[Rfam]
Overview: A member of the RNA family "Lysine riboswitch aptamer" from Lachnospiraceae bacterium M18-1, 256 nucleotides long. The literature on the family includes a 2003 paper in Cell by Mandal et al., "Riboswitches Control Fundamental Biochemical Pathways in Bacillus subtilis and Other Bacteria". The base pairs follow the family's consensus structure, which is taken from published work. It scores 81 bits against the family's covariance model. Lineage of the source: Bacteria > Bacillati > Bacillota > Clostridia > Lachnospiraceae.
RNA sequence: GGACUUGAUAGAGGUGCGGGAUUCAUCAGUACCAGAAAUGACACCGUAAACGAAACCGGAGGGAAUCGUUUCUAUGUGUGAUCUGUGCAGUAAAGUAAGGGAGACAGGCAGAAAGACCUGGCUAAAGGCCGGACUGCCGCUGCAGCUGGGAAAGGGGAGACCGCCGAAGAAGCUGUUUUUCGUCCCUGGGAUGCGGCUUCUGGGCCGCAGCAGAAUAUGCUGUGGACUGUCACAUCAGUGGAGCGCUAUCACGGGA
Numbered sequence: 001g002g003a004c005u006u007g008a009u010a011g012a013g014g015u016g017c018g019g020g021a022u023u024c025a026u027c028a029g030u031a032c033c034a035g036a037a038a039u040g041a042c043a044c045c046g047u048a049a050a051c052g053a054a055a056c057c058g059g060a061g062g063g064a065a066u067c068g069u070u071u072c073u074a075u076g077u078g079u080g081a082u083c084u085g086u087g088c089a090g091u092a093a094a095g096u097a098a099g100g101g102a103g104a105c106a107g108g109c110a111g112a113a114a115g116a117c118c119u120g121g122c123u124a125a126a127g128g129c130c131g132g133a134c135u136g137c138c139g140c141u142g143c144a145g146c147u148g149g150g151a152a153a154g155g156g157g158a159g160a161c162c163g164c165c166g167a168a169g170a171a172g173c174u175g176u177u178u179u180u181c182g183u184c185c186c187u188g189g190g191a192u193g194c195g196g197c198u199u200c201u202g203g204g205c206c207g208c209a210g211c212a213g214a215a216u217a218u219g220c221u222g223u224g225g226a227c228u229g230u231c232a233c234a235u236c237a238g239u240g241g242a243g244c245g246c247u248a249u250c251a252c253g254g255g256a
Base pairs, nucleotide, nucleotide: 006251007250008249009248010247011246016164017163018162019161022158023157024156032149033148034147035146168201169200170199171198172197173196174195175194176193178191179190202228203227205225206224207223208222209221210220211219212218230241231240232239233238
The family has 47 seed sequences and 3,224 matches in Rfam 15.1.